[Rfam]
RNA sequence: UCAUCUCUGAGAUAUGUUUGAUAUUCUUGGUUGUUUUAUUUAAUUUCAACCAAAUAUCGAACAUAUUUCAAGGCUGAA
Numbered sequence: 001u002c003a004u005c006u007c008u009g010a011g012a013u014a015u016g017u018u019u020g021a022u023a024u025u026c027u028u029g030g031u032u033g034u035u036u037u038a039u040u041u042a043a044u045u046u047c048a049a050c051c052a053a054a055u056a057u058c059g060a061a062c063a064u065a066u067u068u069c070a071a072g073g074c075u076g077a078a
Base pairs, nucleotide, nucleotide: 006073007072008071011067012066013065014064015063016062017061018060019059020058021057022056023055024054025053029051030050031049032048033047

Shown here is a 78-nucleotide RNA from Pediculus humanus, a member of the family "mir-190 microRNA precursor family".
Lineage of the source: Eukaryota > Insecta > Dicondylia > Phthiraptera > Pediculus humanus.
Its Rfam clan is "mir-50 clan".